Background:
The record is a 123-nucleotide RNA from Croceibacter atlanticus, which matches "SAM riboswitch aptamer (S box leader)" in Rfam. A search with the family's covariance model found it, with a score of 78 bits. Its family is annotated with regulation of gene expression in the Gene Ontology.
RNA sequence: AUGUUAUCAAGAAAGGCUGAGGGAAUAGACCCUAUGAAGCCUUAGCAACCCUUUCACUUAGAAAGAAGGUGCUACAUUCUACAGUACAGCCAAUCAUUUCUGGUUUGUACAGAUAGAUAACCC
Numbered sequence: 001a002u003g004u005u006a007u008c009a010a011g012a013a014a015g016g017c018u019g020a021g022g023g024a025a026u027a028g029a030c031c032c033u034a035u036g037a038a039g040c041c042u043u044a045g046c047a048a049c050c051c052u053u054u055c056a057c058u059u060a061g062a063a064a065g066a067a068g069g070u071g072c073u074a075c076a077u078u079c080u081a082c083a084g085u086a087c088a089g090c091c092a093a094u095c096a097u098u099u100c101u102g103g104u105u106u107g108u109a110c111a112g113a114u115a116g117a118u119a120a121c122c123c
Stems, first nucleotide, its partner, number of pairs: 003121006013043005021032003026081004044073004049069002051065004077115001082112001084110006